[Rfam]
RNA: L17 ribosomal protein downstream element
RNA sequence: AGAGUGUUAUGAUGUUGGAAAUUUAUUUUUCCGAGUCUAGCUCGGUGCAGUCCUCUGUUUCAUUACAGAGGGC
Numbered sequence: 001a002g003a004g005u006g007u008u009a010u011g012a013u014g015u016u017g018g019a020a021a022u023u024u025a026u027u028u029u030u031c032c033g034a035g036u037c038u039a040g041c042u043c044g045g046u047g048c049a050g051u052c053c054u055c056u057g058u059u060u061c062a063u064u065a066c067a068g069a070g071g072g073c
Stems, first nucleotide, its partner, number of pairs: 002043004011037003017032005050073009